The record is an 85-nucleotide RNA from Lupinus angustifolius, which matches "mir-156 microRNA precursor family" in Rfam. This family represents the plant microRNA (miRNA) precursor mir-156. Pairs were carried over by alignment from the consensus structure, which was predicted with PFOLD. NCBI's taxonomy places the organism under Eukaryota, Streptophytina, Tracheophyta, Genisteae, Lupinus.
[Rfam]
RNA sequence: CUGACAGAAGAGAGUGAGCACACGCUUGUGGUCAUUGUAUGAGGGCAUGCAAUUGCGGGUGCGUGCUUACUUCUCUUUCUGUCAG
Numbered sequence: 001c002u003g004a005c006a007g008a009a010g011a012g013a014g015u016g017a018g019c020a021c022a023c024g025c026u027u028g029u030g031g032u033c034a035u036u037g038u039a040u041g042a043g044g045g046c047a048u049g050c051a052a053u054u055g056c057g058g059g060u061g062c063g064u065g066c067u068u069a070c071u072u073c074u075c076u077u078u079c080u081g082u083c084a085g
Base pairs, nucleotide, nucleotide: 001085002084003083004082005081006080007079008078009077010075011074012073013071014070015069016068017067018066019065020064021063023061024060025059